[Rfam]
RNA sequence: CACUGGUGUUGUUUUACAGGAGAGAACAUCAAACCACUAUAAGGUGCUUUGGUAAAGAGCCAAGGUAUUGAGCGUUAUAGAAAAGGUAAUCCAUGAGAUUAUCAGGU
Numbered sequence: 001c002a003c004u005g006g007u008g009u010u011g012u013u014u015u016a017c018a019g020g021a022g023a024g025a026a027c028a029u030c031a032a033a034c035c036a037c038u039a040u041a042a043g044g045u046g047c048u049u050u051g052g053u054a055a056a057g058a059g060c061c062a063a064g065g066u067a068u069u070g071a072g073c074g075u076u077a078u079a080g081a082a083a084a085g086g087u088a089a090u091c092c093a094u095g096a097g098a099u100u101a102u103c104a105g106g107u
Stems, first nucleotide, its partner, number of pairs: 005030006012023004035106001037080006043069002046066003050062004085103006
About this RNA
The family of this 107-nucleotide RNA sequence from Aquimarina muelleri is "Group II catalytic intron D1-D4-2". A search with the family's covariance model found it, with a score of 90 bits. For this family Rfam cites "The ins and outs of group II introns" (Bonen and Vogel, Trends Genet, 2001). NCBI's taxonomy places the organism under Bacteria, Pseudomonadati, Flavobacteriia, Flavobacteriaceae, Aquimarina. Group II introns are found in rRNA, tRNA and mRNA of organelles in fungi, plants and protists, and also in mRNA in bacteria.